[Rfam]
RNA sequence: UCCCGGGUGACUGAGAAUCUGAAGUAAGGUGAAGACAAAACGCUGGCCUGACAUACGGUUCCUGUAUGUCAGGCCACAUAUCUGGAUGAGGAGGCUAAUAACUCUAAAGUCCUACACUUACAAGGAAAGGUAUGUGGUAAAUGCGGUGGGCAUAAGGGUGAAAGAGGUUAAU
Numbered sequence: 001u002c003c004c005g006g007g008u009g010a011c012u013g014a015g016a017a018u019c020u021g022a023a024g025u026a027a028g029g030u031g032a033a034g035a036c037a038a039a040a041c042g043c044u045g046g047c048c049u050g051a052c053a054u055a056c057g058g059u060u061c062c063u064g065u066a067u068g069u070c071a072g073g074c075c076a077c078a079u080a081u082c083u084g085g086a087u088g089a090g091g092a093g094g095c096u097a098a099u100a101a102c103u104c105u106a107a108a109g110u111c112c113u114a115c116a117c118u119u120a121c122a123a124g125g126a127a128a129g130g131u132a133u134g135u136g137g138u139a140a141a142u143g144c145g146g147u148g149g150g151c152a153u154a155a156g157g158g159u160g161a162a163a164g165a166g167g168u169u170a171a172u
Stems, first nucleotide, its partner, number of pairs: 001016002004013003028172001030170003036164001040159002043156002046151005062146006073138003077134007084112004090105004

Rfam assigns this 172-nucleotide RNA from Arachidicoccus ginsenosidivorans to the family "Group II catalytic intron D1-D4-3". The organism belongs to Arachidicoccus, within Bacteria. Its family is annotated with Group II intron splicing in the Gene Ontology. A search with the family's covariance model found it, with a score of 105 bits.